The record is a 79-nucleotide RNA sequence from Caenorhabditis elegans, which matches "mir-1 microRNA precursor family" in Rfam. The organism belongs to Caenorhabditis, within Eukaryota. Rfam's curators write: This family represents the microRNA (miRNA) mir-1 family. miRNAs are transcribed as ~70nt precursors (modelled here) and subsequently processed by the Dicer enzyme to give a ~22nt product. In this case the mature sequence comes from the 3' arm of the precursor. The extents of the hairpin precursors are not generally known and are estimated based on hairpin prediction. It is one of the family's seed sequences. The family's consensus secondary structure was predicted with RNAalifold.
RNA sequence: UACCGAGCUGCAUACUUCCUUACAUGCCCAUACUAUAUCAUAAAUGGAUAUGGAAUGUAAAGAAGUAUGUAGAACGGGG
Dot-bracket structure: .......(((((((((((.((((((..(((((................))))).)))))).))))))))))).......
Numbered sequence: 001u002a003c004c005g006a007g008c009u010g011c012a013u014a015c016u017u018c019c020u021u022a023c024a025u026g027c028c029c030a031u032a033c034u035a036u037a038u039c040a041u042a043a044a045u046g047g048a049u050a051u052g053g054a055a056u057g058u059a060a061a062g063a064a065g066u067a068u069g070u071a072g073a074a075c076g077g078g079g
Stems, first nucleotide, its partner, number of pairs: 008072011020060006028053005